[Rfam]
Overview:
Rfam assigns this 60-nucleotide RNA sequence to the family "chrB-b RNA". The sequence is in the family's curated seed alignment. The family's RNA type in Rfam is cis-regulatory element.
Nucleotides: 060
Base pairs, nucleotide, nucleotide: 001025002024003023004022005021006020014060015059016058017057018056034050035049036048037047038046
Number, partner (000 for none) and nucleotide at each position: 001025c002024g003023g004022g005021g006020a007000c008000g009000u010000g011000c012000g013000a014060g015059c016058g017057g018056a019000c020006u021005c022004c023003c024002c025001g026000c027000u028000c029000c030000a031000c032000c033000a034050g035049a036048c037047g038046u039000c040000u041000u042000u043000a044000g045000c046038g047037c048036g049035u050034c051000c052000a053000a054000g055000c056018u057017c058016u059015g060014c